[Rfam]
RNA sequence: AGACCACUCCCAUACUCGGAUCGUCCGGCACGUUCCUGCCGGUUGAGGAGAAGUAC
Numbered sequence: 001a002g003a004c005c006a007c008u009c010c011c012a013u014a015c016u017c018g019g020a021u022c023g024u025c026c027g028g029c030a031c032g033u034u035c036c037u038g039c040c041g042g043u044u045g046a047g048g049a050g051a052a053g054u055a056c
Base pairs, nucleotide, nucleotide: 008049009048010047014043025042026041027040028039029038030037
A member of the RNA family "msiK RNA" from Streptomyces fulvorobeus, 56 nucleotides long. A search with the family's covariance model found it, with a score of 46 bits. Pairs were carried over by alignment from the consensus structure, which is taken from published work. Taxonomically the source falls in Streptomyces (Bacteria, Bacillati, Actinomycetota, Actinomycetes). Rfam 15.1 lists 1,374 matches to the family in 1,364 species.